[Rfam]
TPP riboswitch aptamer (THI element): a 102-nucleotide RNA sequence from Roseinatronobacter bogoriensis. NCBI's taxonomy places the organism under Bacteria, Pseudomonadati, Alphaproteobacteria, Paracoccaceae, Roseinatronobacter bogoriensis.
RNA sequence: CUGGUCACCUCGGGGUGCCUGAACAGGGCUGAGAUGCGUAUUUGCGAACCCGUUGAACCUGAACCGGUUCGGACCGGCGGAGGGAAGGUUCGGGCGAUAUGC
Numbered sequence: 001c002u003g004g005u006c007a008c009c010u011c012g013g014g015g016u017g018c019c020u021g022a023a024c025a026g027g028g029c030u031g032a033g034a035u036g037c038g039u040a041u042u043u044g045c046g047a048a049c050c051c052g053u054u055g056a057a058c059c060u061g062a063a064c065c066g067g068u069u070c071g072g073a074c075c076g077g078c079g080g081a082g083g084g085a086a087g088g089u090u091c092g093g094g095c096g097a098u099a100u101g102c
Stems, first nucleotide, its partner, number of pairs: 007089004011052004016046001017029004036045003058083003064077004
Description
Rfam describes the family as follows. Vitamin B(1) in its active form thiamin pyrophosphate (TPP) is an essential coenzyme that is synthesised by coupling of pyrimidine and thiazole moieties in bacteria.